The family of this 81-nucleotide RNA sequence from Peromyscus maniculatus is "mir-105 microRNA precursor family".
[Rfam]
RNA sequence: UGAGCAUCGUGGUCAAAUGCUCAGAUUCCUGUGGUGGCUGCUCAUGCACCAUGGAUGUUUGAGCAUGCACAACGGUGUCUA
Numbered sequence: 001u002g003a004g005c006a007u008c009g010u011g012g013u014c015a016a017a018u019g020c021u022c023a024g025a026u027u028c029c030u031g032u033g034g035u036g037g038c039u040g041c042u043c044a045u046g047c048a049c050c051a052u053g054g055a056u057g058u059u060u061g062a063g064c065a066u067g068c069a070c071a072a073c074g075g076u077g078u079c080u081a
Stems, first nucleotide, its partner, number of pairs: 004078007012070001017066010027055003034052004039048003
Dot-bracket structure: ...(((((((.(....(((((((((((((....((((.(((....)))))))))).))))))))))...).)))))))...

The family has 23 seed sequences and 245 matches in Rfam 15.1. Taxonomically the source falls in Peromyscus maniculatus (Eukaryota, Bilateria, Sarcopterygii, Myomorpha). Rfam links the family to the GO terms cellular_component, RISC complex and molecular_function.